[Rfam]
RNA sequence: UCAUUAGGUGAUGAUGUGACAGACAUAAUGUUACGUCAUUAUGUCUUAUCAUUGAUAAUUCAUUGUUACGUUAUCAUCUUUCAUGACAUAAUAAUGAAGUGUCACUGAUUAAGCAUGAUGAUGUGACACUCUUUCUAUCACGUCAUUAUUUAACGGAA
Number, nucleotide and partner (000 for none) at each position: 001u156002c155003a000004u153005u152006a151007g150008g149009u148010g147011a146012u145013g144014a143015u142016g141017u140018g139019a138020c000021a136022g135023a134024c000025a132026u000027a130028a000029u128030g127031u126032u125033a124034c123035g122036u121037c120038a119039u118040u117041a116042u115043g114044u113045c000046u111047u000048a109049u108050c107051a106052u000053u000054g103055a102056u101057a100058a000059u000060u000061c000062a000063u000064u000065g000066u000067u000068a000069c000070g087071u086072u085073a084074u083075c000076a000077u000078c000079u000080u000081u000082c000083a074084u073085g072086a071087c070088a000089u000090a000091a000092u000093a000094a000095u000096g000097a000098a000099g000100u057101g056102u055103c054104a000105c000106u051107g050108a049109u048110u000111a046112a000113g044114c043115a042116u041117g040118a039119u038120g037121a036122u035123g034124u033125g032126a031127c030128a029129c000130u027131c000132u025133u000134u023135c022136u021137a000138u019139c018140a017141c016142g015143u014144c013145a012146u011147u010148a009149u008150u007151u006152a005153a004154c000155g002156g001157a000158a000